[Rfam]
RNA sequence: UUUAAACUGUGAGUUUGCCUUUCGGCAAACAUCAUAUUAUUGUAUGCCGUUUCUCACUCCGUUCCGAAACGGCGGAAAAUAAGCAGUGCUCAAAAAUUGAUAUUUUUUCCGCUUGCUUAUUUUAUAG
Numbered sequence: 001u002u003u004a005a006a007c008u009g010u011g012a013g014u015u016u017g018c019c020u021u022u023c024g025g026c027a028a029a030c031a032u033c034a035u036a037u038u039a040u041u042g043u044a045u046g047c048c049g050u051u052u053c054u055c056a057c058u059c060c061g062u063u064c065c066g067a068a069a070c071g072g073c074g075g076a077a078a079a080u081a082a083g084c085a086g087u088g089c090u091c092a093a094a095a096a097u098u099g100a101u102a103u104u105u106u107u108u109c110c111g112c113u114u115g116c117u118u119a120u121u122u123u124a125u126a127g
Stems, first nucleotide, its partner, number of pairs: 011033002013030007046073008078121009088112002092107006
Shown here is a 127-nucleotide sequence from Treponema pedis, a member of the family "TD-1 RNA". The match comes from Rfam's covariance-model search (96 bits). By type it is a cis-regulatory element. For this family Rfam cites "Identification of 22 candidate structured RNAs in bacteria using the CMfinder comparative genomics pipeline" (Weinberg et al., Nucleic Acids Res, 2007). The base pairs follow the family's consensus structure, which is taken from published work. Clan: TD (Treponema denticola) motifs. Rfam 15.1 lists 147 matches to the family in 9 species. Lineage of the source: Bacteria > Pseudomonadati > Spirochaetia > Treponematales > Treponema pedis.